Record summary
Rfam assigns this 88-nucleotide sequence from Shouchella oshimensis to the family "pan motif". Pairs were carried over by alignment from the consensus structure, which is taken from published work.
[Rfam]
RNA sequence: AGGGCUGUAUCUGCGAGAACGGCACCCAAUAACGGAUGGGCAAAAAAGCGUCUGUUGCUUCGAUUCUUUUAAGAACGGGGACAAUAAG
Numbered sequence: 001a002g003g004g005c006u007g008u009a010u011c012u013g014c015g016a017g018a019a020c021g022g023c024a025c026c027c028a029a030u031a032a033c034g035g036a037u038g039g040g041c042a043a044a045a046a047a048g049c050g051u052c053u054g055u056u057g058c059u060u061c062g063a064u065u066c067u068u069u070u071a072a073g074a075a076c077g078g079g080g081a082c083a084a085u086a087a088g
Stems, first nucleotide, its partner, number of pairs: 002026002004023005010018002055084003058080005064075003